[Rfam]
Nucleotides: 452
Base pairs, nucleotide, nucleotide: 001392002391003390004389005388006387011024012023013022014021015020026130027128028127029126030125031124032123033122036121037117038116040114041113042112043111044110045109046108051103052101053100057097058096059095061093062092063091064090068086069085070083071082072081073080074079134159135158136157137156138155139154140153141152142151143150164175165174166173179352180351181350182349184348185347186346190342191341192340199339201338202337203336204335205334206333218312219311222309223308224307225306226305227304228303229302231300239296240295241294242293243292245269246268247267250264251263252262270274275290279288280287353382354381355380356379360375393447395444396443397442398441399440400439401438402437403436404435410429411428412427413426414425416423417422
Number, partner (000 for none) and nucleotide at each position: 001392c002391u003390c004389u005388u006387c007000g008000a009000a010000a011024u012023g013022c014021u015020u016000u017000u018000a019000g020015g021014a022013g023012c024011a025000g026130c027128g028127u029126c030125g031124g032123g033122u034000g035000g036121u037117u038116g039000g040114c041113u042112c043111u044110g045109g046108u047000g048000g049000u050000a051103g052101a053100g054000c055000a056000c057097u058096g059095a060000a061093u062092g063091g064090a065000c066000u067000a068086g069085g070083g071082g072081c073080c074079u075000u076000a077000c078000c079074a080073g081072g082071u083070u084000a085069c086068u087000g088000a089000a090064u091063c092062c093061a094000a095059u096058c097057a098000a099000a100053c101052u102000u103051c104000g105000a106000a107000u108046g109045c110044c111043a112042g113041a114040g115000a116038c117037a118000c119000a120000u121036a122033g123032c124031c125030c126029g127028g128027c129000a130026g131000u132000g133000a134159g135158a136157c137156g138155g139154u140153g141152g142151g143150g144000g145000c146000u147000a148000a149000g150143c151142u152141u153140c154139a155138u156137c157136g158135u159134c160000g161000a162000a163000a164175g165174g166173g167000a168000a169000a170000c171000a172000g173166c174165c175164c176000a177000g178000a179352c180351u181350a182349c183000c184348g185347a186346c187000u188000a189000a190342g191341g192340u193000c194000c195000c196000u197000a198000a199339c200000u201338u202337c203336a204335u205334g206333c207000u208000a209000a210000g211000u212000g213000g214000u215000a216000a217000a218312g219311g220000a221000u222309c223308u224307g225306g226305a227304g228303a229302c230000g231300c232000a233000c234000u235000g236000a237000c238000a239296a240295c241294c242293a243292g244000g245269a246268g247267g248000u249000u250264g251263g252262c253000u254000u255000a256000g257000a258000a259000g260000c261000a262252g263251c264250c265000a266000u267247c268246c269245u270274u271000u272000a273000a274270a275290g276000a277000a278000a279288g280287c281000g282000u283000a284000a285000u286000a287280g288279c289000u290275c291000a292243c293242u294241g295240g296239u297000c298000a299000a300231g301000g302229g303228u304227c305226u306225c307224u308223g309222g310000g311219c312218c313000g314000a315000u316000a317000a318000u319000a320000u321000a322000a323000c324000g325000g326000g327000g328000c329000u330000c331000a332000a333206g334205c335204a336203u337202g338201a339199g340192a341191c342190c343000g344000a345000a346186g347185u348184c349182g350181u351180a352179g353382a354381a355380u356379g357000g358000a359000c360375g361000a362000g363000c364000g365000c366000c367000u368000g369000c370000g371000g372000g373000c374000g375360c376000u377000c378000a379356c380355a381354u382353u383000g384000g385000u386000a387006g388005a389004a390003g391002a392001g393447c394000g395444u396443u397442c398441c399440g400439u401438a402437c403436g404435u405000a406000u407000g408000u409000a410429g411428u412427c413426a414425g415000a416423g417422c418000g419000a420000a421000a422417g423416c424000a425414c426413u427412g428411a429410u430000g431000u432000c433000g434000a435404g436403c437402g438401u439400a440399u441398g442397g443396a444395a445000g446000u447393g448000a449000c450000c451000c452000u
The record is a 452-nucleotide part of an RNA from Luteitalea pratensis, which matches "Bacterial large subunit ribosomal RNA" in Rfam. The family's consensus secondary structure is taken from published work. Taxonomically the source falls in Luteitalea (Bacteria, Acidobacteriota, Vicinamibacterales, Vicinamibacteraceae).